[Rfam]
RNA sequence: ACCUGUUUUGUUGCUGGUCAUCUAGCCACCCGUGCAUGCCUGCAGCUCUCUUAUCUGCUGCCUGCCUGGAGAAUAAUUUGCAGCGCAGUGACGAUGCAGCAGUGGGCUUCUUGGCUCUCUUGGGCACGCGUGGUUAGAUGACCAUCAGCAAACAAGUU
Numbered sequence: 001a002c003c004u005g006u007u008u009u010g011u012u013g014c015u016g017g018u019c020a021u022c023u024a025g026c027c028a029c030c031c032g033u034g035c036a037u038g039c040c041u042g043c044a045g046c047u048c049u050c051u052u053a054u055c056u057g058c059u060g061c062c063u064g065c066c067u068g069g070a071g072a073a074u075a076a077u078u079u080g081c082a083g084c085g086c087a088g089u090g091a092c093g094a095u096g097c098a099g100c101a102g103u104g105g106g107c108u109u110c111u112u113g114g115c116u117c118u119c120u121u122g123g124g125c126a127c128g129c130g131u132g133g134u135u136a137g138a139u140g141a142c143c144a145u146c147a148g149c150a151a152a153c154a155a156g157u158u
Stems, first nucleotide, its partner, number of pairs: 005153004010149004015144015031128005
RNA: MIR827 microRNA precursor family